[Rfam]
RNA sequence: UUGCAACUAAUUAAGCUGACCGUGCUCCUUUCCUCAUGGGGGCCUGGUGUGCAUUGGCUGCAAAUAGCAGCCUCCUCGGUAGUGUAUGCAGCCUGUUGCUUGUAUAGGUUGCUCUAAGGGACCUUGGAGACAUUC
Numbered sequence: 001u002u003g004c005a006a007c008u009a010a011u012u013a014a015g016c017u018g019a020c021c022g023u024g025c026u027c028c029u030u031u032c033c034u035c036a037u038g039g040g041g042g043c044c045u046g047g048u049g050u051g052c053a054u055u056g057g058c059u060g061c062a063a064a065u066a067g068c069a070g071c072c073u074c075c076u077c078g079g080u081a082g083u084g085u086a087u088g089c090a091g092c093c094u095g096u097u098g099c100u101u102g103u104a105u106a107g108g109u110u111g112c113u114c115u116a117a118g119g120g121a122c123c124u125u126g127g128a129g130a131c132a133u134u135c
Stems, first nucleotide, its partner, number of pairs: 002053004019048004025042004078123003089111006
Dot-bracket structure: .((((.............((((..((((..........))))..)))).))))........................(((........((((((...........)))))).........)))............
RNA: Small nucleolar RNA SNORA70